[Rfam]
RNA sequence: CGGCUGUAGCCAGAUCCCACUGCUGAGAAGUUAACUGGCCGGUUGUUGUCCAUCUCCGUCGACAAUUCUGCUUACCGAACUUCUCACAUUC
Numbered sequence: 001c002g003g004c005u006g007u008a009g010c011c012a013g014a015u016c017c018c019a020c021u022g023c024u025g026a027g028a029a030g031u032u033a034a035c036u037g038g039c040c041g042g043u044u045g046u047u048g049u050c051c052a053u054c055u056c057c058g059u060c061g062a063c064a065a066u067u068c069u070g071c072u073u074a075c076c077g078a079a080c081u082u083c084u085c086a087c088a089u090u091c
Stems, first nucleotide, its partner, number of pairs: 025085008037072003041068002044065001045063004
The record is a 91-nucleotide sequence from Rhodamnia argentea, which matches "Small nucleolar RNA snoR109" in Rfam. It scores 80 bits against the family's covariance model. It is annotated as an H/ACA-box small nucleolar RNA. The organism belongs to Rhodamnia, within Eukaryota. Its family is annotated with RNA processing and nucleolus in the Gene Ontology.